[Rfam]
RNA sequence: AAUAACCAUGGCCAAACUCGUCGCGAGGCGGGGGCGGAAAGCUGCGGGUCUUGUUUGCAAGACGGCCGGGUUGCCAAC
Numbered sequence: 001a002a003u004a005a006c007c008a009u010g011g012c013c014a015a016a017c018u019c020g021u022c023g024c025g026a027g028g029c030g031g032g033g034g035c036g037g038a039a040a041g042c043u044g045c046g047g048g049u050c051u052u053g054u055u056u057g058c059a060a061g062a063c064g065g066c067c068g069g070g071u072u073g074c075c076a077a078c
Stems, first nucleotide, its partner, number of pairs: 012037002017032006040072004045068003048063006
Dot-bracket structure: ...........((...((((((....))))))...))..((((.(((((((((....))))))..)))))))......

Rfam assigns this 78-nucleotide RNA sequence from Methylomonas methanica to the family "c-di-GMP-I riboswitch aptamer". NCBI's taxonomy places the organism under Bacteria, Pseudomonadota, Methylococcales, Methylococcaceae, Methylomonas methanica. Rfam describes the family as follows. GEMM was predicted in a large-scale screen for bacterial structured RNA regulatory elements.